[Rfam]
Nucleotides: 067
Stems, first nucleotide, its partner, number of pairs: 001034004006029002015027003041054005
Number, partner (000 for none) and nucleotide at each position: 001034u002033c003032c004031c005000u006029u007028c008000a009000a010000g011000u012000a013000c014000c015027a016026c017025c018000u019000c020000u021000a022000c023000g024000c025017g026016g027015u028007g029006a030000u031004g032003g033002g034001g035000a036000g037000g038000c039000a040000a041054c042053g043052c044051c045050a046000u047000u048000u049000a050045u051044g052043g053042c054041g055000g056000c057000u058000a059000a060000c061000a062000g063000u064000a065000c066000a067000c
HDV ribozyme from F. prausnitzii: a 67-nucleotide RNA from Caenorhabditis auriculariae. Pairs were carried over by alignment from the consensus structure, which is taken from published work. It scores 46 bits against the family's covariance model. NCBI's taxonomy places the organism under Eukaryota, Protostomia, Ecdysozoa, Chromadorea, Caenorhabditis.